The family of this 373-nucleotide sequence from Rhodohalobacter sp. SW132 is "Bacterial RNase P class A". The source organism's lineage runs through Bacteria, Pseudomonadati, Balneolota, Balneolales and Rhodohalobacter.
[Rfam]
RNA sequence: AGACAUCUCCGGGCAGCCGCUUUUCGAUACAAUCGGAAGGAGGAAAGUCCGAACACCAACGAACACCGUGCUUCCUAACAGGAAGGGGUUCCGGUUUCAAGACCGGAAAGACAGCCAGUGCCACAGAAAACAGACUUCCCGUGCCGCAGGCGUGGGUAAAGGUGAAAAGGUGAGGUAAGAGCUCACCGGCCCUGCAGUGAUGCCGGGCGCAUGGCAAACCUCACGGGGUGCAAGUUCACGCAGAUUGUGUGCCGUUCGUCACAAUACAAUCGGGUGGAACGCUACGAUCCUGCCAGUGAUGUCAGGGCCAGAUAAAUGGCUGCCAUCCCGAAAUAUCGGUAUACAGAAUUCGGCUUAUAGGAGAUGUCUAUUC
Numbered sequence: 001a002g003a004c005a006u007c008u009c010c011g012g013g014c015a016g017c018c019g020c021u022u023u024u025c026g027a028u029a030c031a032a033u034c035g036g037a038a039g040g041a042g043g044a045a046a047g048u049c050c051g052a053a054c055a056c057c058a059a060c061g062a063a064c065a066c067c068g069u070g071c072u073u074c075c076u077a078a079c080a081g082g083a084a085g086g087g088g089u090u091c092c093g094g095u096u097u098c099a100a101g102a103c104c105g106g107a108a109a110g111a112c113a114g115c116c117a118g119u120g121c122c123a124c125a126g127a128a129a130a131c132a133g134a135c136u137u138c139c140c141g142u143g144c145c146g147c148a149g150g151c152g153u154g155g156g157u158a159a160a161g162g163u164g165a166a167a168a169g170g171u172g173a174g175g176u177a178a179g180a181g182c183u184c185a186c187c188g189g190c191c192c193u194g195c196a197g198u199g200a201u202g203c204c205g206g207g208c209g210c211a212u213g214g215c216a217a218a219c220c221u222c223a224c225g226g227g228g229u230g231c232a233a234g235u236u237c238a239c240g241c242a243g244a245u246u247g248u249g250u251g252c253c254g255u256u257c258g259u260c261a262c263a264a265u266a267c268a269a270u271c272g273g274g275u276g277g278a279a280c281g282c283u284a285c286g287a288u289c290c291u292g293c294c295a296g297u298g299a300u301g302u303c304a305g306g307g308c309c310a311g312a313u314a315a316a317u318g319g320c321u322g323c324c325a326u327c328c329c330g331a332a333a334u335a336u337c338g339g340u341a342u343a344c345a346g347a348a349u350u351c352g353g354c355u356u357a358u359a360g361g362a363g364a365u366g367u368c369u370a371u372u373c
Stems, first nucleotide, its partner, number of pairs: 001369010011358001012324007020040009045356003049353005054230004061260002066226005071085005086112001113221002118219002120215003135161002138156008169187006188210001189208004194203003234280004243271006254262002288307005294301002

Rfam's curators write: Ribonuclease P (RNase P) is a ubiquitous endoribonuclease, found in archaea, bacteria and eukarya as well as chloroplasts and mitochondria. It scores 254 bits against the family's covariance model. Pairs were carried over by alignment from the consensus structure, which is taken from published work. The family's RNA type in Rfam is ribozyme.